This 86-nucleotide RNA sequence from Monodelphis domestica belongs to the Rfam family "Small nucleolar RNA SNORD35". By type it is a C/D-box small nucleolar RNA. Taxonomically the source falls in Monodelphis (Eukaryota, Gnathostomata, Tetrapoda, Amniota). The family has 8 seed sequences and 1,842 matches in Rfam 15.1. About the family: U35 is a C/D box snoRNA located in intron 6 of ribosomal protein L13A and intron 3 of ribosomal protein S11 in humans and at homologous positions in mouse and chicken ribosomal protein genes. Clan: SNORD35 clan. A search with the family's covariance model found it, with a score of 81 bits.
[Rfam]
RNA sequence: GGCAGAUGAUGUUUGUCAUCACGAUGGUCUUCGGAUGCCUAAGGGUACCUGCCGACAAAGCCACAAGGCUCAGCUGAUGCCAGGAG
Numbered sequence: 001g002g003c004a005g006a007u008g009a010u011g012u013u014u015g016u017c018a019u020c021a022c023g024a025u026g027g028u029c030u031u032c033g034g035a036u037g038c039c040u041a042a043g044g045g046u047a048c049c050u051g052c053c054g055a056c057a058a059a060g061c062c063a064c065a066a067g068g069c070u071c072a073g074c075u076g077a078u079g080c081c082a083g084g085a086g
Stems, first nucleotide, its partner, number of pairs: 001081004
Record summary: A reference for the family is Nicoloso et al. (1996), "Intron-encoded, antisense small nucleolar RNAs: the characterization of nine novel species points to their direct role as guides for the 2'-O-ribose methylation of rRNAs", J Mol Biol. Gene Ontology terms of the family: nucleolus and RNA processing.